[Rfam]
RNA sequence: CACACGUCAGUGAAGAGCUCACAGUAAACCGAUUGUGGGAUGUGAGCUCUGAUGGAAAUCUGUGUG
Numbered sequence: 001c002a003c004a005c006g007u008c009a010g011u012g013a014a015g016a017g018c019u020c021a022c023a024g025u026a027a028a029c030c031g032a033u034u035g036u037g038g039g040a041u042g043u044g045a046g047c048u049c050u051g052a053u054g055g056a057a058a059u060c061u062g063u064g065u066g
Stems, first nucleotide, its partner, number of pairs: 001066005015049009029038003